[Rfam]
RNA sequence: GGCAGGAGAGCAGAGAACGAAAUCCAAGUGCAGCUGAAUCAAGAGAAAAACAGCUGCUUUUGGGAUUCCGUUGGCCACUCACACACCA
Numbered sequence: 001g002g003c004a005g006g007a008g009a010g011c012a013g014a015g016a017a018c019g020a021a022a023u024c025c026a027a028g029u030g031c032a033g034c035u036g037a038a039u040c041a042a043g044a045g046a047a048a049a050a051c052a053g054c055u056g057c058u059u060u061u062g063g064g065a066u067u068c069c070g071u072u073g074g075c076c077a078c079u080c081a082c083a084c085a086c087c088a
Base pairs, nucleotide, nucleotide: 009079010078013075017071018070019069021067022066023065024063025062026061027060030057031056032055033054034053035052036051
Rfam assigns this 88-nucleotide RNA sequence from Varanus komodoensis to the family "mir-191 microRNA precursor family". On this family, see Kim et al., Proc Natl Acad Sci U S A 2004: "Identification of many microRNAs that copurify with polyribosomes in mammalian neurons". Taxonomically the source falls in Varanus (Eukaryota, Opisthokonta, Euteleostomi, Paleoanguimorpha). The base pairs follow the family's consensus structure, which was predicted with RNAalifold. The match comes from Rfam's covariance-model search (55 bits).